[Rfam]
Nucleotides: 202
Stems, first nucleotide, its partner, number of pairs: 002020003007015003029145003033141006040132004048125002051122001053121003070100006101116001103114001105112001155199002160196001167188003170184001172182003
Number, partner (000 for none) and nucleotide at each position: 001000a002020g003019c004018u005000u006000u007015u008014a009013c010000g011000a012000g013009g014008u015007a016000u017000c018004a019003g020002c021000a022000c023000u024000u025000u026000u027000c028000u029145u030144u031143c032000a033141u034140u035139a036138g037137g038136g039000a040132g041131a042130a043129g044000g045000a046000g047000u048125g049124a050000a051122g052000a053121a054120a055119g056000c057000a058000c059000c060000a061000a062000a063000c064000a065000g066000c067000a068000g069000c070100a071099g072098a073097c074096u075095u076000u077000u078000a079000a080000a081000c082000u083000u084000u085000a086000a087000a088000u089000a090000u091000a092000g093000a094000c095075a096074g097073g098072u099071c100070u101116g102000a103114g104000u105112g106000c107000c108000u109000g110000a111000a112105c113000u114103u115000g116101c117000u118000u119055u120054u121053u122051c123000a124049u125048u126000u127000u128000a129043c130042u131041u132040c133000a134000u135000c136038c137037u138036c139035u140034a141033a142000g143031g144030a145029g146000u147000u148000c149000a150000a151000u152000c153000a154000c155199u156198u157000g158000g159000c160196g161000u162000g163000c164000c165000u166000a167188c168187u169186u170184c171000a172182c173181u174180u175000c176000u177000u178000u179000u180174a181173a182172g183000a184170g185000a186169a187168a188167g189000a190000g191000u192000a193000a194000g195000u196160u197000g198156g199155a200000a201000a202000a
This 202-nucleotide RNA from Pteropus vampyrus belongs to the Rfam family "Connexin-43 internal ribosome entry site (IRES)". The match comes from Rfam's covariance-model search (177 bits). This family represents the connexin-43 internal ribosome entry site (IRES) which allows cap independent translation during conditions such as heat shock and stress. For this family Rfam cites "Connexin43 mRNA contains a functional internal ribosome entry site" (Schiavi et al., FEBS Lett, 1999). Taxonomically the source falls in Pteropus (Eukaryota, Gnathostomata, Dipnotetrapodomorpha, Pteropodinae).